[Rfam]
RNA sequence: GGUCUGCUGCGGCUCGCGUCGAAGGCUUCACAUCCCGGGGACCUUAAUUCAUCUCUUAGGGAGCUGUCCCUGUCCGGGAUCGUGGUCCUGGACACACGGCGCCCACCUGGUCUGACCAGGUCCGAGUGGAUUGAAAACGCCUUCACGGUUUUCGCGGCGCCGCC
Numbered sequence: 001g002g003u004c005u006g007c008u009g010c011g012g013c014u015c016g017c018g019u020c021g022a023a024g025g026c027u028u029c030a031c032a033u034c035c036c037g038g039g040g041a042c043c044u045u046a047a048u049u050c051a052u053c054u055c056u057u058a059g060g061g062a063g064c065u066g067u068c069c070c071u072g073u074c075c076g077g078g079a080u081c082g083u084g085g086u087c088c089u090g091g092a093c094a095c096a097c098g099g100c101g102c103c104c105a106c107c108u109g110g111u112c113u114g115a116c117c118a119g120g121u122c123c124g125a126g127u128g129g130a131u132u133g134a135a136a137a138c139g140c141c142u143u144c145a146c147g148g149u150u151u152u153c154g155c156g157g158c159g160c161c162g163c164c
Base pairs, nucleotide, nucleotide: 005159006158007157008156009155010154011153012151015148017147018146019145033130034129035128036126039123040122041121042120043119059104060103061102063100064099065098066097067096072093073092074091075090076089077088078087
Dot-bracket structure: ....((((((((..(.(((.............((((..(((((...............(((.(((((....(((((((........)))))))..))))).)))..............)))))..).)))..............))))..).))))))).....